Notes
Group II catalytic intron D1-D4-3: a 172-nucleotide sequence from Natranaerobius thermophilus. The sequence is in the family's curated seed alignment. Rfam's curators write: Group II introns are found in rRNA, tRNA and mRNA of organelles in fungi, plants and protists, and also in mRNA in bacteria. Gene Ontology term of the family: Group II intron splicing. Lineage of the source: Bacteria > Bacillati > Bacillota > Clostridia > Natranaerobius thermophilus.
RNA sequence: CCCAUCGUGAGGUGGGAUCUGAAGGAAGCUUAAGGCAAAAUUCCGACCCAAGGCACACGAACAUCAUCAGGCAUAAGGUAUGGGAUGAGUUUGCAAUACAAAACGAAGUCCAAUCAACUACACGGACAUACCAGUGUAAAUGAUGUGGGUACAUGGAAUGAAAGUUAAUCGU
Numbered sequence: 001c002c003c004a005u006c007g008u009g010a011g012g013u014g015g016g017a018u019c020u021g022a023a024g025g026a027a028g029c030u031u032a033a034g035g036c037a038a039a040a041u042u043c044c045g046a047c048c049c050a051a052g053g054c055a056c057a058c059g060a061a062c063a064u065c066a067u068c069a070g071g072c073a074u075a076a077g078g079u080a081u082g083g084g085a086u087g088a089g090u091u092u093g094c095a096a097u098a099c100a101a102a103a104c105g106a107a108g109u110c111c112a113a114u115c116a117a118c119u120a121c122a123c124g125g126a127c128a129u130a131c132c133a134g135u136g137u138a139a140a141u142g143a144u145g146u147g148g149g150u151a152c153a154u155g156g157a158a159u160g161a162a163a164g165u166u167a168a169u170c171g172u
Base pairs, nucleotide, nucleotide: 001016002015003014004013005012006011028172029171035165036164040159041158042157043156044155045154046150047149048148049147050146062145063144064143065142066141071137072136073135077132078131079130080129081128082127083111084110085109086108089104090103091102092101